A member of the RNA family "Small nucleolar RNA SNORD111" from Psophia crepitans, 82 nucleotides long.
A reference for the family is Galardi et al. (2002), "Purified box C/D snoRNPs are able to reproduce site-specific 2'-O-methylation of target RNA in vitro", Mol Cell Biol.
A search with the family's covariance model found it, with a score of 48 bits.
By type it is a C/D-box small nucleolar RNA.
RNA sequence: GAGCCUGAAAUGAUGUUAUGAAUUCGUGUCUCUUCUCUGAGAUCUGUCAUGCAGACAGCUAGGUGCGUUUCUGAUCAGGCUU
Numbered sequence: 001g002a003g004c005c006u007g008a009a010a011u012g013a014u015g016u017u018a019u020g021a022a023u024u025c026g027u028g029u030c031u032c033u034u035c036u037c038u039g040a041g042a043u044c045u046g047u048c049a050u051g052c053a054g055a056c057a058g059c060u061a062g063g064u065g066c067g068u069u070u071c072u073g074a075u076c077a078g079g080c081u082u
Stems, first nucleotide, its partner, number of pairs: 001082005